[Rfam]
RNA: Fluoride riboswitch aptamer (crcB RNA motif)
Organism: Thermoanaerobacterium thermosaccharolyticum
RNA sequence: UUGUUGUAAGGUGAUGGAGCUCACCUUUAAAUGCGUCGAAGCUGAUGGCUCCUAUUGGGUA
Numbered sequence: 001u002u003g004u005u006g007u008a009a010g011g012u013g014a015u016g017g018a019g020c021u022c023a024c025c026u027u028u029a030a031a032u033g034c035g036u037c038g039a040a041g042c043u044g045a046u047g048g049c050u051c052c053u054a055u056u057g058g059g060u061a
Stems, first nucleotide, its partner, number of pairs: 010025004016052006033042002
Dot-bracket structure: .........[[[[..((((((]]]].......((......))....)))))).........